[Rfam]
RNA sequence: CAGGCAUGCUGGAGCCCCGCCAGCGGCGCCUGGGCUCGGUUGAGCCCGACACCGGACCGACGGGGCAGAA
Number, nucleotide and partner (000 for none) at each position: 001c000002a000003g000004g000005c000006a000007u000008g000009c000010u000011g000012g000013a000014g066015c065016c064017c063018c062019g061020c000021c000022a000023g000024c054025g053026g052027c000028g000029c000030c000031u048032g047033g046034g045035c044036u000037c000038g000039g000040u000041u000042g000043a000044g035045c034046c033047c032048g031049a000050c000051a000052c026053c025054g024055g000056a000057c000058c000059g000060a000061c019062g018063g017064g016065g015066c014067a000068g000069a000070a000
Description
The family of this 70-nucleotide RNA from Mesorhizobium waimense is "ybhL leader". It scores 65 bits against the family's covariance model. The organism belongs to Mesorhizobium, within Bacteria.